[Rfam]
Nucleotides: 153
Stems, first nucleotide, its partner, number of pairs: 007060006015050002020047002022044001023041006061126005128148001130151001134146003
Number, partner (000 for none) and nucleotide at each position: 001000u002000a003000a004000a005000c006000g007060g008059g009058c010057g011056a012055c013000u014000a015050g016049g017000g018000u019000u020047c021046c022044g023041g024040u025039u026038u027037g028036u029000u030000a031000c032000u033000a034000a035000a036028a037027c038026a039025a040024a041023u042000g043000c044022c045000u046021g047020g048000u049016c050015c051000g052000a053000g054000a055012g056011u057010u058009g059008c060007c061126a062125a063124c064123c065122u066000a067000g068000c069000u070000g071000c072000a073000c074000a075000a076000c077000u078000u079000c080000c081000u082000a083000a084000a085000g086000c087000a088000a089000u090000g091000u092000u093000g094000c095000u096000u097000g098000u099000g100000g101000u102000u103000u104000u105000a106000g107000u108000g109000u110000u111000u112000g113000c114000g115000u116000c117000a118000g119000c120000a121000a122065g123064g124063g125062u126061u127000a128148c129000a130151c131000g132000g133000c134146g135145g136144g137000a138000u139000a140000a141000a142000a143000g144136c145135c146134c147000g148128g149000g150000a151130g152000g153000u